[Rfam]
RNA sequence: CUUUAAAUGUGGAUGUAGGGUCUGAAAAACUCAUAAAGUUAAAGUGCUGUCAUCAGCUUCUUCACUUGUACUAACAUGUUUGAAGUCAAAUAAAAGCACUACAUUU
Numbered sequence: 001c002u003u004u005a006a007a008u009g010u011g012g013a014u015g016u017a018g019g020g021u022c023u024g025a026a027a028a029a030c031u032c033a034u035a036a037a038g039u040u041a042a043a044g045u046g047c048u049g050u051c052a053u054c055a056g057c058u059u060c061u062u063c064a065c066u067u068g069u070a071c072u073a074a075c076a077u078g079u080u081u082g083a084a085g086u087c088a089a090a091u092a093a094a095a096g097c098a099c100u101a102c103a104u105u106u
Stems, first nucleotide, its partner, number of pairs: 043100006056086005063078002
RNA: Small nucleolar RNA snoR97
Organism: Nicotiana tabacum